[Rfam]
RNA sequence: AUCUUUGUGCAUGGGUAAUAACUGUGCUAGUGAGGAUUUUAUCUGAAGCCAGUUGUUUGCUGUUUGCAAACUUCCCAAUCGCAUCAUCUUUCGCAAUAGUCGGAAGAGAAUUUUUUGAAAAGGGGGAACCCU
Numbered sequence: 001a002u003c004u005u006u007g008u009g010c011a012u013g014g015g016u017a018a019u020a021a022c023u024g025u026g027c028u029a030g031u032g033a034g035g036a037u038u039u040u041a042u043c044u045g046a047a048g049c050c051a052g053u054u055g056u057u058u059g060c061u062g063u064u065u066g067c068a069a070a071c072u073u074c075c076c077a078a079u080c081g082c083a084u085c086a087u088c089u090u091u092c093g094c095a096a097u098a099g100u101c102g103g104a105a106g107a108g109a110a111u112u113u114u115u116u117g118a119a120a121a122g123g124g125g126g127a128a129c130c131c132u
Stems, first nucleotide, its partner, number of pairs: 020054005026049003034044003084107002087104003093101001121132004
U4 spliceosomal RNA: a 132-nucleotide RNA from Rhizophagus irregularis. A search with the family's covariance model found it, with a score of 81 bits. A reference for the family is Thomas et al. (1990), "The spliceosomal snRNAs of Caenorhabditis elegans", Nucleic Acids Res. The base pairs follow the family's consensus structure, which is taken from published work.